This 90-nucleotide RNA from Micromonospora radicis belongs to the Rfam family "ZMP/ZTP riboswitch aptamer (pfl RNA motif)".
RNA sequence: GCCACGGGCCGUGACUGGCGCGUGGGGAUGGAGCACCAUCGGGAAGCGGCCCCGUCACGAGGACGCACGCCGAGCGCCUGGGCCUUCCGC
Numbered sequence: 001g002c003c004a005c006g007g008g009c010c011g012u013g014a015c016u017g018g019c020g021c022g023u024g025g026g027g028a029u030g031g032a033g034c035a036c037c038a039u040c041g042g043g044a045a046g047c048g049g050c051c052c053c054g055u056c057a058c059g060a061g062g063a064c065g066c067a068c069g070c071c072g073a074g075c076g077c078c079u080g081g082g083c084c085u086u087c088c089g090c
Stems, first nucleotide, its partner, number of pairs: 006052007015043002017078005028039004067085001069083003